This 355-nucleotide part of an RNA from Geothermobacter ehrlichii belongs to the Rfam family "Bacterial small subunit ribosomal RNA". The base pairs follow the family's consensus structure, which is taken from published work.
RNA sequence: GGCGUAAAGCGCGUGUAGGCGGUCCGUUAAGUCUGAUGUGAAAGCCCGGGGCUUAACCUCGGAAGUGCAUUGGAAACUGGCGGACUUGAGUACGGGAGAGGGAAGUGGAAUUCCGAGUGUAGGGGUGAAAUCCGUAGAUAUUCGGAGGAACACCGGUGGCGAAGGCGGCUUCCUGGACCGAUACUGACGCUGAGACGCGAAAGCGUGGGGAGCAAACAGGAUUAGAUACCCUGGUAGUCCACGCCGUAAACGAUGGGUACUAGGUGUUGCGGGUAUUGACCCCUGCAGUGCCGUAGCUAACGCAUUAAGUACCCCGCCUGGGGAGUACGGUCGCAAGAUUAAAACUCAAAGGAAU
Numbered sequence: 001g002g003c004g005u006a007a008a009g010c011g012c013g014u015g016u017a018g019g020c021g022g023u024c025c026g027u028u029a030a031g032u033c034u035g036a037u038g039u040g041a042a043a044g045c046c047c048g049g050g051g052c053u054u055a056a057c058c059u060c061g062g063a064a065g066u067g068c069a070u071u072g073g074a075a076a077c078u079g080g081c082g083g084a085c086u087u088g089a090g091u092a093c094g095g096g097a098g099a100g101g102g103a104a105g106u107g108g109a110a111u112u113c114c115g116a117g118u119g120u121a122g123g124g125g126u127g128a129a130a131u132c133c134g135u136a137g138a139u140a141u142u143c144g145g146a147g148g149a150a151c152a153c154c155g156g157u158g159g160c161g162a163a164g165g166c167g168g169c170u171u172c173c174u175g176g177a178c179c180g181a182u183a184c185u186g187a188c189g190c191u192g193a194g195a196c197g198c199g200a201a202a203g204c205g206u207g208g209g210g211a212g213c214a215a216a217c218a219g220g221a222u223u224a225g226a227u228a229c230c231c232u233g234g235u236a237g238u239c240c241a242c243g244c245c246g247u248a249a250a251c252g253a254u255g256g257g258u259a260c261u262a263g264g265u266g267u268u269g270c271g272g273g274u275a276u277u278g279a280c281c282c283c284u285g286c287a288g289u290g291c292c293g294u295a296g297c298u299a300a301c302g303c304a305u306u307a308a309g310u311a312c313c314c315c316g317c318c319u320g321g322g323g324a325g326u327a328c329g330g331u332c333g334c335a336a337g338a339u340u341a342a343a344a345c346u347c348a349a350a351g352g353a354a355u
Stems, first nucleotide, its partner, number of pairs: 001318003009315001011198004016192001018191003022085007030078002032074009046062006089185003093180003100174007107151001111147008122133003159166002203244006212238002217233004255314006263292011296303002320347003329340004